Rfam assigns this 81-nucleotide RNA sequence from Erwinia sorbitola to the family "OmrA-B family". The match comes from Rfam's covariance-model search (75 bits). Taxonomically the source falls in Erwinia (Bacteria, Pseudomonadati, Enterobacterales, Erwiniaceae). The base pairs follow the family's consensus structure, which was predicted with WAR. The family's RNA type in Rfam is small RNA.
[Rfam]
RNA sequence: CCCAGAGGUAUUGAUGGGUGAACAUCAAAAAGUCUUUAACGCUUUGUUUCACCAACCUGCGCAGAUGCGCAGGUUUUUUUU
Numbered sequence: 001c002c003c004a005g006a007g008g009u010a011u012u013g014a015u016g017g018g019u020g021a022a023c024a025u026c027a028a029a030a031a032g033u034c035u036u037u038a039a040c041g042c043u044u045u046g047u048u049u050c051a052c053c054a055a056c057c058u059g060c061g062c063a064g065a066u067g068c069g070c071a072g073g074u075u076u077u078u079u080u081u
Stems, first nucleotide, its partner, number of pairs: 017053004021043001032040002055074008